The record is an 83-nucleotide sequence from Lacinutrix sp. Bg11-31, which matches "Flavo-1 RNA" in Rfam. Taxonomically the source falls in Lacinutrix (Bacteria, Pseudomonadati, Flavobacteriales, Flavobacteriaceae). It is annotated as a small RNA.

RNA sequence: UUUUUGCGUUAAGGAUAGAAGCGGCAUCCUUUUUUUGCUGCCAUAUAUGGCAAAAAAAGAUAUAGCGUAUAGCCUGACCUUUA
Dot-bracket structure: ...........(((.((...((...(((...((((((((.........))))))))..)))...))...)).)))........